[Rfam]
RNA sequence: UGCAACACCCAUCAAAGGAGUCGUUCCCCAGGAGCUACUUUACCAUAUUCCGAAUUU
Numbered sequence: 001u002g003c004a005a006c007a008c009c010c011a012u013c014a015a016a017g018g019a020g021u022c023g024u025u026c027c028c029c030a031g032g033a034g035c036u037a038c039u040u041u042a043c044c045a046u047a048u049u050c051c052g053a054a055u056u057u
Stems, first nucleotide, its partner, number of pairs: 017041005023035005
This 57-nucleotide RNA from Nyssa sinensis belongs to the Rfam family "Plastid-psbN 5UTR RNA". Pairs were carried over by alignment from the consensus structure, which was predicted with LocARNA. The match comes from Rfam's covariance-model search (73 bits). Plastid psbN is a non-coding RNA (ncRNA) recognised in plastids. By type it is a cis-regulatory element. Lineage of the source: Eukaryota > Streptophyta > Streptophytina > Gunneridae > Nyssa.